[Rfam]
RNA: Small nucleolar RNA snR191
Organism: Coniochaeta sp. 2T2.1
RNA sequence: UCCCAAUGGUUUAGUCAGGGUACUCCAGCUCUCUCUUCGGAGAGAUACCACACUGUGGGAUGCAUCCGUUACAUCGUUGGGAGAUCAAUAUCCACCUCCCGCGCCCUUGGUUUUCGGAUCGAGGGUGGAGGGUUCCCGUCUCGGGGGCCCUCAUGGGAACCGGACGUGUUCCAUUAGAGUUGAAGACAACCACCACGUAAAUGGGUGGCUCGUGGUCGUUUUCUUAGUAAUGUCUCAUACAUUU
Numbered sequence: 001u002c003c004c005a006a007u008g009g010u011u012u013a014g015u016c017a018g019g020g021u022a023c024u025c026c027a028g029c030u031c032u033c034u035c036u037u038c039g040g041a042g043a044g045a046u047a048c049c050a051c052a053c054u055g056u057g058g059g060a061u062g063c064a065u066c067c068g069u070u071a072c073a074u075c076g077u078u079g080g081g082a083g084a085u086c087a088a089u090a091u092c093c094a095c096c097u098c099c100c101g102c103g104c105c106c107u108u109g110g111u112u113u114u115c116g117g118a119u120c121g122a123g124g125g126u127g128g129a130g131g132g133u134u135c136c137c138g139u140c141u142c143g144g145g146g147g148c149c150c151u152c153a154u155g156g157g158a159a160c161c162g163g164a165c166g167u168g169u170u171c172c173a174u175u176a177g178a179g180u181u182g183a184a185g186a187c188a189a190c191c192a193c194c195a196c197g198u199a200a201a202u203g204g205g206u207g208g209c210u211c212g213u214g215g216u217c218g219u220u221u222u223c224u225u226a227g228u229a230a231u232g233u234c235u236c237a238u239a240c241a242u243u244u
Base pairs, nucleotide, nucleotide: 003080004079005078006077007076018067019066020065021064023062024060025059026058029044030043031042032041033040091164092163093162096127098125099124100123102121103120108116109115128152129151130150131149132148133147134146135145136144137143138142166238167237168236172232173231174230182223183222184221185220189216190215191214194207195206196205